The family of this 74-nucleotide sequence from Mola mola is "Small nucleolar RNA SNORD2".
The family's RNA type in Rfam is C/D-box small nucleolar RNA.
Rfam 15.1 lists 1,116 matches to the family in 660 species.
The match comes from Rfam's covariance-model search (72 bits).
For this family Rfam cites "Identification of a novel box C/D snoRNA from mouse nucleolar cDNA library" (Zhou et al., Gene, 2004).
RNA sequence: UGGUGACAUGAUGGCAUACCAUCUUUCGGGACUGACUCUUGAAAUGGAGAGUUUGUUACAUUUACUGAUCACUU
Numbered sequence: 001u002g003g004u005g006a007c008a009u010g011a012u013g014g015c016a017u018a019c020c021a022u023c024u025u026u027c028g029g030g031a032c033u034g035a036c037u038c039u040u041g042a043a044a045u046g047g048a049g050a051g052u053u054u055g056u057u058a059c060a061u062u063u064a065c066u067g068a069u070c071a072c073u074u
Base pairs, nucleotide, nucleotide: 002073003072004071005070006069